This 66-nucleotide sequence from Ureibacillus manganicus belongs to the Rfam family "Bacillaceae-1 RNA". It is annotated as a small RNA. Lineage of the source: Bacteria > Bacillati > Bacillota > Caryophanales > Ureibacillus manganicus.
RNA sequence: GAGCGCCACUUAUCGCUGAAAACGCAACGUCCUGUUGCAUCAGCGAUAUGACCUACAUCGUGUAGG
Number, nucleotide and partner (000 for none) at each position: 001g000002a000003g000004c000005g000006c000007c000008a000009c000010u000011u048012a047013u046014c045015g044016c043017u042018g000019a000020a000021a000022a000023c000024g038025c037026a036027a035028c034029g000030u000031c000032c000033u000034g028035u027036u026037g025038c024039a000040u000041c000042a017043g016044c015045g014046a013047u012048a011049u000050g000051a000052c066053c065054u064055a063056c062057a000058u000059c000060g000061u000062g056063u055064a054065g053066g052